RNA sequence: GACAGUCAGUAGUUGGUCUGGUGUGAGCAGGAAUUCUCAGAUCACCUCUUGGCUGUGAG
Numbered sequence: 001g002a003c004a005g006u007c008a009g010u011a012g013u014u015g016g017u018c019u020g021g022u023g024u025g026a027g028c029a030g031g032a033a034u035u036c037u038c039a040g041a042u043c044a045c046c047u048c049u050u051g052g053c054u055g056u057g058a059g
Stems, first nucleotide, its partner, number of pairs: 002056008011047002014044008

Shown here is a 59-nucleotide RNA from Monodelphis domestica, a member of the family "mir-2970 microRNA precursor family". A reference for the family is Gunaratne et al. (2011), "Song exposure regulates known and novel microRNAs in the zebra finch auditory forebrain", BMC Genomics. Its family is annotated with RISC complex and miRNA-mediated post-transcriptional gene silencing in the Gene Ontology. Rfam's curators put it in the seed alignment. Taxonomically the source falls in Monodelphis (Eukaryota, Dipnotetrapodomorpha, Mammalia, Didelphinae).